[Rfam]
RNA: epsC RNA
RNA sequence: UGGCGAUGUCUCCUUGCCGGUAUCAAUGGAGGCACUCGGUCAUGCUGUGGGUUUGAAAAACCUUAGACGCCAGUCGUCGAAAGUGUGGUGUGAGGAGGGGUUGAAUGCCCC
Numbered sequence: 001u002g003g004c005g006a007u008g009u010c011u012c013c014u015u016g017c018c019g020g021u022a023u024c025a026a027u028g029g030a031g032g033c034a035c036u037c038g039g040u041c042a043u044g045c046u047g048u049g050g051g052u053u054u055g056a057a058a059a060a061c062c063u064u065a066g067a068c069g070c071c072a073g074u075c076g077u078c079g080a081a082a083g084u085g086u087g088g089u090g091u092g093a094g095g096a097g098g099g100g101u102u103g104a105a106u107g108c109c110c111c
Base pairs, nucleotide, nucleotide: 001019002018003017004016007034008033009032010031011030012029013028035094036093037092038091039089040088041087042086043085044084045083046082049063050062051061052060053059054058066078067077068076069075097111098110099109100108101107